A member of the RNA family "Streptococcus sRNA SpF10" from Streptococcus pneumoniae, 57 nucleotides long. The family's RNA type in Rfam is small RNA. A reference for the family is Mann et al. (2012), "Control of virulence by small RNAs in Streptococcus pneumoniae", PLoS Pathog. The sequence is in the family's curated seed alignment. The family's consensus secondary structure was predicted with mfold.
RNA sequence: CAGAUAGAACAUUGCAUUCAGAAUAAUGAAAAACGCAUCAAAAAUGGUGCGUUCUGU
Numbered sequence: 001c002a003g004a005u006a007g008a009a010c011a012u013u014g015c016a017u018u019c020a021g022a023a024u025a026a027u028g029a030a031a032a033a034c035g036c037a038u039c040a041a042a043a044a045u046g047g048u049g050c051g052u053u054c055u056g057u
Stems, first nucleotide, its partner, number of pairs: 004057007017030004035050006